[Rfam]
RNA sequence: GGUCAGGGAUGAGGGGCUGAGGGAUGAGCCCUCAGGGCUGGGUCAGGGAUGAGGGGCUGAGGGCUCAUCCCUCAGCCCCAUAUCCCUGACC
Numbered sequence: 001g002g003u004c005a006g007g008g009a010u011g012a013g014g015g016g017c018u019g020a021g022g023g024a025u026g027a028g029c030c031c032u033c034a035g036g037g038c039u040g041g042g043u044c045a046g047g048g049a050u051g052a053g054g055g056g057c058u059g060a061g062g063g064c065u066c067a068u069c070c071c072u073c074a075g076c077c078c079c080a081u082a083u084c085c086c087u088g089a090c091c
Stems, first nucleotide, its partner, number of pairs: 001091004006086004014078004019073005028064008
The record is a 91-nucleotide RNA from Vireo altiloquus, which matches "mir-25 microRNA precursor family" in Rfam. For this family Rfam cites "Identification and characterization of two novel classes of small RNAs in the mouse germline: retrotransposon-derived siRNAs in oocytes and germline small RNAs in testes" (Watanabe et al., Genes Dev, 2006). Its family is annotated with miRNA-mediated post-transcriptional gene silencing and RISC complex in the Gene Ontology.